[Rfam]
RNA sequence: UGAAUUUAAAAGAUCAUUCUUCGUAUAACCUCAACGAUAUGGGUUGGGGGUCUCUACAAGGUUCCGUAAAAACCUAGCUACGAAGAGAGUGCACAAGUGU
Numbered sequence: 001u002g003a004a005u006u007u008a009a010a011a012g013a014u015c016a017u018u019c020u021u022c023g024u025a026u027a028a029c030c031u032c033a034a035c036g037a038u039a040u041g042g043g044u045u046g047g048g049g050g051u052c053u054c055u056a057c058a059a060g061g062u063u064c065c066g067u068a069a070a071a072a073c074c075u076a077g078c079u080a081c082g083a084a085g086a087g088a089g090u091g092c093a094c095a096a097g098u099g100u
Base pairs, nucleotide, nucleotide: 018086019085020084021083022082023081024080025079029049030048031047032046033045034044035043059075060074061073062072063071
Shown here is a 100-nucleotide RNA sequence from Halalkalibacter wakoensis, a member of the family "Purine riboswitch aptamer". Gene Ontology term of the family: purine nucleobase biosynthetic process. Taxonomically the source falls in Halalkalibacter wakoensis (Bacteria, Bacillota, Caryophanales, Bacillaceae). The family's consensus secondary structure is taken from published work.